[Rfam]
RNA sequence: UACAUUUGCAGCUUGAUAAGAAAGACUUAUCAAUACAUAAAAAUCAUUUAAAUAAUAUUGGCAUG
Numbered sequence: 001u002a003c004a005u006u007u008g009c010a011g012c013u014u015g016a017u018a019a020g021a022a023a024g025a026c027u028u029a030u031c032a033a034u035a036c037a038u039a040a041a042a043a044u045c046a047u048u049u050a051a052a053u054a055a056u057a058u059u060g061g062c063a064u065g
Base pairs, nucleotide, nucleotide: 014032015031016030017029018028019027
Rfam assigns this 65-nucleotide sequence from Neptunitalea chrysea to the family "S15-Flavobacteria ribosomal protein leader".
The family's consensus secondary structure is taken from published work.
Lineage of the source: Bacteria > Bacteroidota > Flavobacteriales > Flavobacteriaceae > Neptunitalea.
It scores 79 bits against the family's covariance model.